[Rfam]
RNA sequence: GAAGUUAAAGGACGGAACAGGCAGCCGUCACCCCUCGCAAGAGGUUAGGAGAUGUGGGAAUUGUCACCCCACUUAAUUUC
Numbered sequence: 001g002a003a004g005u006u007a008a009a010g011g012a013c014g015g016a017a018c019a020g021g022c023a024g025c026c027g028u029c030a031c032c033c034c035u036c037g038c039a040a041g042a043g044g045u046u047a048g049g050a051g052a053u054g055u056g057g058g059a060a061u062u063g064u065c066a067c068c069c070c071a072c073u074u075a076a077u078u079u080c
Stems, first nucleotide, its partner, number of pairs: 001080008011029005020065004031049001033044004054072005
RNA: skipping-rope RNA